[Rfam]
RNA sequence: AGCUUUCUGGAUCCGUGGAGAGAUUUCGUUAAACGCCAACCCAUUAAGGUUGAUCAGACUUCCAAGAUAAAUGAAGUU
Numbered sequence: 001a002g003c004u005u006u007c008u009g010g011a012u013c014c015g016u017g018g019a020g021a022g023a024u025u026u027c028g029u030u031a032a033a034c035g036c037c038a039a040c041c042c043a044u045u046a047a048g049g050u051u052g053a054u055c056a057g058a059c060u061u062c063c064a065a066g067a068u069a070a071a072u073g074a075a076g077u078u
Stems, first nucleotide, its partner, number of pairs: 002077005008071001011068003016064002020061003024058003028054003
Rfam assigns this 78-nucleotide sequence from Schistosoma haematobium to the family "mir-3492 microRNA precursor family". A search with the family's covariance model found it, with a score of 49 bits. The family's consensus secondary structure was predicted with RNAalifold. The organism belongs to Schistosoma, within Eukaryota.